[Rfam]
The record is a 74-nucleotide RNA sequence from Alligator sinensis, which matches "Mammalian CPEB3 ribozyme" in Rfam. The organism belongs to Alligator, within Eukaryota. It scores 46 bits against the family's covariance model.

RNA sequence: UCACGUGUUUAAGGCCUUAGCAGAAGUGCUCAUGAUGUAGCCUGUCAGAUUCUAAUGAAUCUGUGAUUUCUGCU
Numbered sequence: 001u002c003a004c005g006u007g008u009u010u011a012a013g014g015c016c017u018u019a020g021c022a023g024a025a026g027u028g029c030u031c032a033u034g035a036u037g038u039a040g041c042c043u044g045u046c047a048g049a050u051u052c053u054a055a056u057g058a059a060u061c062u063g064u065g066a067u068u069u070c071u072g073c074u
Base pairs, nucleotide, nucleotide: 013042014041015040019074020073021072022071023070024069025068026038027037028036046063047062048061049060050059051058052057